RNA: S4-Flavobacteria ribosomal protein leader
RNA sequence: GGUCAUCGAAGGAUAAGCCUUAAUUCAUGACC
Numbered sequence: 001g002g003u004c005a006u007c008g009a010a011g012g013a014u015a016a017g018c019c020u021u022a023a024u025u026c027a028u029g030a031c032c
Stems, first nucleotide, its partner, number of pairs: 001032006008026001009021004